[Rfam]
RNA sequence: GAACCUGUGCCUUCUCCUCAUUGCUUUUGGAGGAGGAAUACAUCCAUAACAUGCUACACCAAAAAAAGGAGUUCUCAGGGCUGCCAACCUUACAAUAGAGGUUGAGUGGUAGUAUAUUUCUCCUACAUUU
Numbered sequence: 001g002a003a004c005c006u007g008u009g010c011c012u013u014c015u016c017c018u019c020a021u022u023g024c025u026u027u028u029g030g031a032g033g034a035g036g037a038a039u040a041c042a043u044c045c046a047u048a049a050c051a052u053g054c055u056a057c058a059c060c061a062a063a064a065a066a067a068g069g070a071g072u073u074c075u076c077a078g079g080g081c082u083g084c085c086a087a088c089c090u091u092a093c094a095a096u097a098g099a100g101g102u103u104g105a106g107u108g109g110u111a112g113u114a115u116a117u118u119u120c121u122c123c124u125a126c127a128u129u130u
Base pairs, nucleotide, nucleotide: 010036011035012034013033014032015031016030017029068123069122070121071120080110081109084106085104086103087102088101089100090099091098
Overview:
Small nucleolar RNA U109: a 130-nucleotide RNA from Jaculus jaculus. Its family is annotated with RNA processing and nucleolus in the Gene Ontology. Pairs were carried over by alignment from the consensus structure, which was predicted with WAR. Lineage of the source: Eukaryota > Bilateria > Teleostomi > Mammalia > Jaculus. It scores 122 bits against the family's covariance model. The family has 26 seed sequences and 1,405 matches in Rfam 15.1.